[Rfam]
RNA sequence: AAGAGUUGGUGUUGGUGGUUGCGGACUGGCUCAACAGCCGGUCUGAGGAAAGUCCGGGCUCCCCAAAGACCAAACUUGCUGGGUAACGCCCAGUGCGGGUGACCGUGAGGACAGUGCCACAGAAACAUACCGCCGAUGGAUACACCCUUGAACAGGAAAUGUUUGGGAAUGGCGCUAUUCCAGCAUUUUUCUUUCAGGGGCACUCACAGGUAAGGGUGCAAGGGUGCGGUAAGAGCGCACCAGCAACAUCGAGAGGUGUUGGCUCGGUAAACCCCGGUUGGGAGCAAGGCAGAGGAACAAGGGUUGGUCUUUUUCCGGUUCCGCUUUGAUAGAAGCCGCAUGAGGCGUUUGGUAACAACCGUCCUAGAUAGAUAACCCCCCUGGAUCAGAGGAACUGCUCCUAUCGAAGGGCAAUUUGCGAACAUCCAGAGAACAGAACCCGGCUUACGGCUGACUCUUUCUG
Numbered sequence: 001a002a003g004a005g006u007u008g009g010u011g012u013u014g015g016u017g018g019u020u021g022c023g024g025a026c027u028g029g030c031u032c033a034a035c036a037g038c039c040g041g042u043c044u045g046a047g048g049a050a051a052g053u054c055c056g057g058g059c060u061c062c063c064c065a066a067a068g069a070c071c072a073a074a075c076u077u078g079c080u081g082g083g084u085a086a087c088g089c090c091c092a093g094u095g096c097g098g099g100u101g102a103c104c105g106u107g108a109g110g111a112c113a114g115u116g117c118c119a120c121a122g123a124a125a126c127a128u129a130c131c132g133c134c135g136a137u138g139g140a141u142a143c144a145c146c147c148u149u150g151a152a153c154a155g156g157a158a159a160u161g162u163u164u165g166g167g168a169a170u171g172g173c174g175c176u177a178u179u180c181c182a183g184c185a186u187u188u189u190u191c192u193u194u195c196a197g198g199g200g201c202a203c204u205c206a207c208a209g210g211u212a213a214g215g216g217u218g219c220a221a222g223g224g225u226g227c228g229g230u231a232a233g234a235g236c237g238c239a240c241c242a243g244c245a246a247c248a249u250c251g252a253g254a255g256g257u258g259u260u261g262g263c264u265c266g267g268u269a270a271a272c273c274c275c276g277g278u279u280g281g282g283a284g285c286a287a288g289g290c291a292g293a294g295g296a297a298c299a300a301g302g303g304u305u306g307g308u309c310u311u312u313u314u315c316c317g318g319u320u321c322c323g324c325u326u327u328g329a330u331a332g333a334a335g336c337c338g339c340a341u342g343a344g345g346c347g348u349u350u351g352g353u354a355a356c357a358a359c360c361g362u363c364c365u366a367g368a369u370a371g372a373u374a375a376c377c378c379c380c381c382u383g384g385a386u387c388a389g390a391g392g393a394a395c396u397g398c399u400c401c402u403a404u405c406g407a408a409g410g411g412c413a414a415u416u417u418g419c420g421a422a423c424a425u426c427c428a429g430a431g432a433a434c435a436g437a438a439c440c441c442g443g444c445u446u447a448c449g450g451c452u453g454a455c456u457c458u459u460u461c462u463g
Stems, first nucleotide, its partner, number of pairs: 001459010011448001014380002017377004022045009050446003054443005059284004068315002073279003077276002079093005094108001095106004109274002114272002116268003130215002132211003137206003223241006243263001244261007288337003298328005306321002309318002344363004349358003
This 463-nucleotide RNA sequence from Petrachloros mirabilis belongs to the Rfam family "Bacterial RNase P class A".
Lineage of the source: Bacteria > Bacillati > Cyanobacteriota > Petrachloros > Petrachloros mirabilis.
Rfam links the family to the GO terms dimeric ribonuclease P complex, tRNA processing and ribonuclease P activity.
The family's RNA type in Rfam is ribozyme.